[Rfam]
RNA sequence: GCAUGGCUGAAUUCUGUAUUACUCUUGACAUAGUAAAUGCAGUCAGACACCAUGCUAAAUGAUUGUCUUCACACACUGACUCAACCACAGGAUUUGAGUGCUUAUCGUGUACCUCAUUCUUAUGUCAGAGUGAAUACAGCA
Numbered sequence: 001g002c003a004u005g006g007c008u009g010a011a012u013u014c015u016g017u018a019u020u021a022c023u024c025u026u027g028a029c030a031u032a033g034u035a036a037a038u039g040c041a042g043u044c045a046g047a048c049a050c051c052a053u054g055c056u057a058a059a060u061g062a063u064u065g066u067c068u069u070c071a072c073a074c075a076c077u078g079a080c081u082c083a084a085c086c087a088c089a090g091g092a093u094u095u096g097a098g099u100g101c102u103u104a105u106c107g108u109g110u111a112c113c114u115c116a117u118u119c120u121u122a123u124g125u126c127a128g129a130g131u132g133a134a135u136a137c138a139g140c141a
Stems, first nucleotide, its partner, number of pairs: 001055006014042006068134003074130001076128005087123001089121004095116004

Rfam assigns this 141-nucleotide RNA sequence from Acanthochromis polyacanthus to the family "Small nucleolar RNA SNORA15".
The family has 22 seed sequences and 974 matches in Rfam 15.1.
By type it is an H/ACA-box small nucleolar RNA.
Pairs were carried over by alignment from the consensus structure, which was predicted with RNAfold.
The match comes from Rfam's covariance-model search (57 bits).
About the family: ACA15 is a member of the H/ACA class of snoRNA that guide the sites of modification of uridines to pseudouridines.
A reference for the family is Huttenhofer et al. (2001), "RNomics: an experimental approach that identifies 201 candidates for novel, small, non-messenger RNAs in mouse", EMBO J.